[Rfam]
RNA sequence: AUUGUCCGGGAUCGCCCCCCGUCAGCGAGUGUUCGCCCACGGGGGCAUUUGUC
Dot-bracket structure: ...............(((((((..((((....))))..)))))))........

A member of the RNA family "ffh sRNA" from Roseisalinus antarcticus, 53 nucleotides long.
Lineage of the source: Bacteria > Alphaproteobacteria > Rhodobacterales > Roseobacteraceae > Roseisalinus.